[Rfam]
RNA: sroC RNA
Organism: Klebsiella pneumoniae
RNA sequence: ACUAAUUAUAACAACCAGGGGCGGGAUAUCCUGCCCUCCCGAUGAUUGUCACAGCACGGACAGACUAUACGGCGGCUGGUCGUUCCCCAGCCGCCGCGAAUACCGAAACAAGCUGGACAACCGUCUUCGAGGGUAGCACUGGCUACCCUUUUUUUUCCAGGA
Numbered sequence: 001a002c003u004a005a006u007u008a009u010a011a012c013a014a015c016c017a018g019g020g021g022c023g024g025g026a027u028a029u030c031c032u033g034c035c036c037u038c039c040c041g042a043u044g045a046u047u048g049u050c051a052c053a054g055c056a057c058g059g060a061c062a063g064a065c066u067a068u069a070c071g072g073c074g075g076c077u078g079g080u081c082g083u084u085c086c087c088c089a090g091c092c093g094c095c096g097c098g099a100a101u102a103c104c105g106a107a108a109c110a111a112g113c114u115g116g117a118c119a120a121c122c123g124u125c126u127u128c129g130a131g132g133g134u135a136g137c138a139c140u141g142g143c144u145a146c147c148c149u150u151u152u153u154u155u156u157c158c159a160g161g162a
Stems, first nucleotide, its partner, number of pairs: 012161001019036004023031002037132002040129002042124003046120001048118002057105003061098001071095009